Shown here is a 56-nucleotide sequence from Peterkaempfera bronchialis, a member of the family "msiK RNA".
RNA sequence: CGGGCCCACCUUUACUCGGACCGUCCGGCACGUUCCUGCCGGUGAAGGGGAGUCGA
Numbered sequence: 001c002g003g004g005c006c007c008a009c010c011u012u013u014a015c016u017c018g019g020a021c022c023g024u025c026c027g028g029c030a031c032g033u034u035c036c037u038g039c040c041g042g043u044g045a046a047g048g049g050g051a052g053u054c055g056a
Stems, first nucleotide, its partner, number of pairs: 009048006025042006
Taxonomically the source falls in Peterkaempfera (Bacteria, Actinomycetota, Actinomycetes, Streptomycetaceae).